This 87-nucleotide sequence from Plesiomonas shigelloides belongs to the Rfam family "TrxA 5' UTR thermometer". Lineage of the source: Bacteria > Pseudomonadati > Gammaproteobacteria > Enterobacteriaceae > Plesiomonas shigelloides. On this family, see Righetti et al., Proc Natl Acad Sci U S A 2016: "Temperature-responsive in vitro RNA structurome of Yersinia pseudotuberculosis". Its family is annotated with response to temperature stimulus and regulation of translation in the Gene Ontology.
RNA sequence: UAACAACUGUUGGUCAAUGUUACACCAACAAUGCGAUAUAACACUUGGGAGUGGAAGAUGAGCGAUAAAAUUGUUCAGCUGACCGAC
Numbered sequence: 001u002a003a004c005a006a007c008u009g010u011u012g013g014u015c016a017a018u019g020u021u022a023c024a025c026c027a028a029c030a031a032u033g034c035g036a037u038a039u040a041a042c043a044c045u046u047g048g049g050a051g052u053g054g055a056a057g058a059u060g061a062g063c064g065a066u067a068a069a070a071u072u073g074u075u076c077a078g079c080u081g082a083c084c085g086a087c
Stems, first nucleotide, its partner, number of pairs: 008067005014061003020054004025049002030046002071086003075082002
Involved in protection against oxidative stress.